[Rfam]
RNA sequence: CCUGUGGAGCGUCAUAAAAAACGCAAGUAGUGUCGACAAAAAGUCGGACGCGCUGAAAGCAGGAA
Numbered sequence: 001c002c003u004g005u006g007g008a009g010c011g012u013c014a015u016a017a018a019a020a021a022c023g024c025a026a027g028u029a030g031u032g033u034c035g036a037c038a039a040a041a042a043g044u045c046g047g048a049c050g051c052g053c054u055g056a057a058a059g060c061a062g063g064a065a
Stems, first nucleotide, its partner, number of pairs: 001063005009051005022046002031038002
Rfam assigns this 65-nucleotide sequence to the family "RAGATH-18 RNA". Rfam classes the family as a small RNA. The sequence is in the family's curated seed alignment. Rfam's curators write: Actinobacteria, Firmicutes, Fusobacteria, Thermotogae (1 example).